This 364-nucleotide sequence from Streptococcus porcinus belongs to the Rfam family "Bacterial RNase P class B". About the family: Ribonuclease P (RNase P) is a ubiquitous endoribonuclease, found in archaea, bacteria and eukarya as well as chloroplasts and mitochondria. Its best characterised activity is the generation of mature 5'-ends of tRNAs by cleaving the 5'-leader elements of precursor-tRNAs. Cellular RNase Ps are ribonucleoproteins. RNA from bacterial RNase Ps retains its catalytic activity in the absence of the protein subunit, i.e. it is a ribozyme.

[Rfam]
RNA sequence: AUUUUUGGAUAAUCGCGUAGCUUUUUAGGUUAUGAGGAAAGUCCAUGCUAGCACUGGCUGUGAUGCCAGUAGUGUUUGUGCUAGGCGAAAAAAUAAGCCUAGGAAUGUCUUUGACAUUACGGCGGAAAAAAAGGCUAAGUCGAAUGAUAUGCCUGAGUAUUUCUGAAAGUGCCACAGUGACGCAGUUUCUAUGGAAACGUAGAAAAUGGAACGCGGUAAACCCCUCAAGCUAGCAACCCAAACUUUGGUCGGGGCAUGGGAUAGACGGGAAACGAACCUUCUAUCCUGACUGUUUACAGUAGACAGAUGAUUAUCGAAAGAAGUAAUACCUAGUUAUUUCUGGAACAAAACAUGGCUUAUAGAA
Number, nucleotide and partner (000 for none) at each position: 001a000002u000003u000004u364005u363006u362007g360008g315009a314010u313011a312012a311013u310014c309015g000016c034017g033018u032019a031020g030021c029022u000023u000024u000025u000026u000027a000028g000029g021030u020031u019032a018033u017034g016035a000036g000037g000038a000039a358040a357041g356042u000043c355044c354045a353046u352047g351048c233049u232050a231051g230052c229053a070054c069055u068056g067057g066058c065059u000060g000061u000062g000063a000064u000065g058066c057067c056068a055069g054070u053071a000072g000073u000074g000075u000076u228077u227078g226079u000080g224081c102082u101083a100084g099085g098086c097087g000088a000089a000090a000091a000092a000093a000094u000095a000096a000097g086098c085099c084100u083101a082102g081103g120104a118105a117106u116107g115108u114109c113110u000111u000112u000113g109114a108115c107116a106117u105118u104119a000120c103121g223122g222123c000124g163125g162126a161127a160128a000129a000130a000131a000132a154133g153134g152135c151136u000137a000138a000139g148140u147141c146142g000143a000144a000145u000146g141147a140148u139149a000150u000151g135152c134153c133154u132155g000156a000157g000158u000159a000160u127161u126162u125163c124164u000165g000166a000167a000168a000169g221170u220171g217172c216173c215174a000175c000176a000177g000178u000179g000180a000181c000182g000183c000184a000185g000186u205187u204188u203189c202190u201191a200192u199193g198194g000195a000196a000197a000198c193199g192200u191201a190202g189203a188204a187205a186206a000207u000208g000209g000210a000211a000212c000213g000214c000215g173216g172217u171218a000219a000220a170221c169222c122223c121224c080225u000226c078227a077228a076229g052230c051231u050232a049233g048234c000235a000236a000237c253238c252239c251240a000241a000242a000243c000244u000245u000246u000247g000248g000249u000250c000251g239252g238253g237254g000255c000256a000257u288258g287259g286260g285261a284262u283263a282264g000265a000266c000267g000268g000269g000270a000271a000272a000273c000274g000275a000276a000277c000278c000279u000280u000281c000282u263283a262284u261285c260286c259287u258288g257289a300290c299291u298292g297293u000294u000295u000296a000297c292298a291299g290300u289301a000302g000303a000304c000305a000306g000307a000308u000309g014310a013311u012312u011313a010314u009315c008316g000317a000318a000319a341320g340321a339322a338323g337324u336325a335326a334327u333328a000329c000330c000331u000332a000333g327334u326335u325336a324337u323338u322339u321340c320341u319342g000343g000344a000345a000346c000347a000348a000349a000350a000351c047352a046353u045354g044355g043356c041357u040358u039359a000360u007361a000362g006363a005364a004
Rfam classes the family as a ribozyme. On this family, see Frank and Pace, Annu Rev Biochem 1998: "Ribonuclease P: unity and diversity in a tRNA processing ribozyme". Pairs were carried over by alignment from the consensus structure, which is taken from published work. Gene Ontology terms of the family: tRNA processing, dimeric ribonuclease P complex and ribonuclease P activity.